[Rfam]
RNA sequence: GAGAGAAUGAUAUACUAUGCUUUGUAGAAAAGUGAAAAGAUGGUGGCUAAUCUUUUGAUAAUAGGGAUGAUGCCUAUGGUUAAAAGCGUUUUUCCCGGAAAGGACUAAGCGUGUCUGUUUUUGAAGCAUUGUCACUGAUGGUUGCAUUUGCAACGUUGGUGCUGCUGUUAAACAACGA
Numbered sequence: 001g002a003g004a005g006a007a008u009g010a011u012a013u014a015c016u017a018u019g020c021u022u023u024g025u026a027g028a029a030a031a032g033u034g035a036a037a038a039g040a041u042g043g044u045g046g047c048u049a050a051u052c053u054u055u056u057g058a059u060a061a062u063a064g065g066g067a068u069g070a071u072g073c074c075u076a077u078g079g080u081u082a083a084a085a086g087c088g089u090u091u092u093u094c095c096c097g098g099a100a101a102g103g104a105c106u107a108a109g110c111g112u113g114u115c116u117g118u119u120u121u122u123g124a125a126g127c128a129u130u131g132u133c134a135c136u137g138a139u140g141g142u143u144g145c146a147u148u149u150g151c152a153a154c155g156u157u158g159g160u161g162c163u164g165c166u167g168u169u170a171a172a173c174a175a176c177g178a
Base pairs, nucleotide, nucleotide: 043154044153046151047150064095065094066093067092069090070089072087073086113133115131117129118128120126159173160172161168162167

The record is a 178-nucleotide sequence from Vagococcus acidifermentans, which matches "Listeria sRNA rli28" in Rfam. Pairs were carried over by alignment from the consensus structure, which was predicted with RNAalifold.